Rfam assigns this 64-nucleotide RNA sequence from Lichenibacterium ramalinae to the family "terC RNA". The organism belongs to Lichenibacterium, within Bacteria.
RNA sequence: CCACUGAACCGGGCCCCUCUGGCGCCGUCCGCACCGUCGGGCGGCGUGAUGUCGGAUCAGUCUG
Dot-bracket structure: .....((.((((.........((((((((((......))))))))))....)))).))......